[Rfam]
RNA sequence: ACUGACUCGAAUCCUCCGAACAAAGCUUCCUUGAACGUUUUGUUCGUUCGGCUCGAGUUAGAA
Numbered sequence: 001a002c003u004g005a006c007u008c009g010a011a012u013c014c015u016c017c018g019a020a021c022a023a024a025g026c027u028u029c030c031u032u033g034a035a036c037g038u039u040u041u042g043u044u045c046g047u048u049c050g051g052c053u054c055g056a057g058u059u060a061g062a063a
Stems, first nucleotide, its partner, number of pairs: 002061002005058006012051002017046002020043004025038002

The record is a 63-nucleotide sequence from Argiope bruennichi, which matches "mir-375 microRNA precursor family" in Rfam.
The source organism's lineage runs through Eukaryota, Panarthropoda, Arachnida, Orbiculariae and Argiope.
A reference for the family is Chen et al. (2005), "The developmental miRNA profiles of zebrafish as determined by small RNA cloning", Genes Dev.